[Rfam]
RNA: L31-Gammaproteobacteria ribosomal protein leader
RNA sequence: CGCAUGGUGUUCGGCUUUGGAUCGAAUGGCGAUGCGGCCCAUAACUGAGGU
Numbered sequence: 001c002g003c004a005u006g007g008u009g010u011u012c013g014g015c016u017u018u019g020g021a022u023c024g025a026a027u028g029g030c031g032a033u034g035c036g037g038c039c040c041a042u043a044a045c046u047g048a049g050g051u
Stems, first nucleotide, its partner, number of pairs: 001036005007030002011025004016020001